[Rfam]
RNA sequence: UCGGGCUCGAACGCAGUCGCCCGGCUCGCCCAAGGCAUUUCGCCCAAGUGCUGC
Numbered sequence: 001u002c003g004g005g006c007u008c009g010a011a012c013g014c015a016g017u018c019g020c021c022c023g024g025c026u027c028g029c030c031c032a033a034g035g036c037a038u039u040u041c042g043c044c045c046a047a048g049u050g051c052u053g054c
Base pairs, nucleotide, nucleotide: 001024002023003022004021005020006019013054014053015052016051017050034044035043036042
Background: Shown here is a 54-nucleotide RNA, a member of the family "chrB-b RNA". The family's consensus secondary structure is taken from published work. The sequence is in the family's curated seed alignment.